[Rfam]
RNA: Guanidine-I riboswitch aptamer
RNA sequence: GACAGUUGCUUCUAGGGUUCCGGUCCGGCAGGUCAGGCUUCGCCUGAUCUGCCCGAUGUCUGGUCCGAGAGAAGCGCACUCCCAGGGAGCGGUCUUCCGGCCCCCUGUGAGUGGCACGGAGGGACAAAAGCCCGGGAGAC
Numbered sequence: 001g002a003c004a005g006u007u008g009c010u011u012c013u014a015g016g017g018u019u020c021c022g023g024u025c026c027g028g029c030a031g032g033u034c035a036g037g038c039u040u041c042g043c044c045u046g047a048u049c050u051g052c053c054c055g056a057u058g059u060c061u062g063g064u065c066c067g068a069g070a071g072a073a074g075c076g077c078a079c080u081c082c083c084a085g086g087g088a089g090c091g092g093u094c095u096u097c098c099g100g101c102c103c104c105c106u107g108u109g110a111g112u113g114g115c116a117c118g119g120a121g122g123g124a125c126a127a128a129a130g131c132c133c134g135g136g137a138g139a140c
Stems, first nucleotide, its partner, number of pairs: 007076006015066002020063002022060001023057003027053012077113005083107005115135001117138001121133003